A member of the RNA family "Glycine riboswitch aptamer" from Roseivivax halotolerans, 88 nucleotides long. Taxonomically the source falls in Roseivivax (Bacteria, Pseudomonadati, Pseudomonadota, Alphaproteobacteria). The base pairs follow the family's consensus structure. It scores 58 bits against the family's covariance model.

[Rfam]
RNA sequence: GCAUCAGCAAAGGGAGAACCGGCCGCGUGCCGGUGCCGAAGGAGCAACCGCCCCGGAAACUCUCAGGCCGCAGGACCUUUGCCGAAAG
Numbered sequence: 001g002c003a004u005c006a007g008c009a010a011a012g013g014g015a016g017a018a019c020c021g022g023c024c025g026c027g028u029g030c031c032g033g034u035g036c037c038g039a040a041g042g043a044g045c046a047a048c049c050g051c052c053c054c055g056g057a058a059a060c061u062c063u064c065a066g067g068c069c070g071c072a073g074g075a076c077c078u079u080u081g082c083c084g085a086a087a088g
Base pairs, nucleotide, nucleotide: 007082008081009080010079011078012077013076019033020032021031022030035068036067037066038064039063042062043061044060048056049055